Rfam assigns this 143-nucleotide RNA from Tigriopus californicus to the family "Small nucleolar RNA SNORA57". From the family's description: U99 belongs to the H/ACA class of snoRNAs which are thought to guide the sites of modification of uridines to pseudouridines, the target for this family is unknown. The family has 26 seed sequences and 1,736 matches in Rfam 15.1. It scores 48 bits against the family's covariance model. Lineage of the source: Eukaryota > Pancrustacea > Harpacticoida > Harpacticidae > Tigriopus. Its family is annotated with nucleolus and RNA processing in the Gene Ontology. For this family Rfam cites "Identification of 13 novel human modification guide RNAs" (Vitali et al., Nucleic Acids Res, 2003).
[Rfam]
RNA sequence: CCUCUUAUCUUGGCAUGGCAAAAACGGAUCGUGUCUUGCUGUGAAUUGCAAUAGAGGCAGAUUAUUCCUUAAAAGACGAACCUAUGCCUUCGGUGUCCAAGCCAACUCUUGCCUGGAUCCCAUCCUCAAUGGUUCAAACAAUC
Numbered sequence: 001c002c003u004c005u006u007a008u009c010u011u012g013g014c015a016u017g018g019c020a021a022a023a024a025c026g027g028a029u030c031g032u033g034u035c036u037u038g039c040u041g042u043g044a045a046u047u048g049c050a051a052u053a054g055a056g057g058c059a060g061a062u063u064a065u066u067c068c069u070u071a072a073a074a075g076a077c078g079a080a081c082c083u084a085u086g087c088c089u090u091c092g093g094u095g096u097c098c099a100a101g102c103c104a105a106c107u108c109u110u111g112c113c114u115g116g117a118u119c120c121c122a123u124c125c126u127c128a129a130u131g132g133u134u135c136a137a138a139c140a141a142u143c
Base pairs, nucleotide, nucleotide: 001057002056003055004054005053014043015042016041017040018039019038021036023034078135079134080133081132082131096117097116098115099114101112102111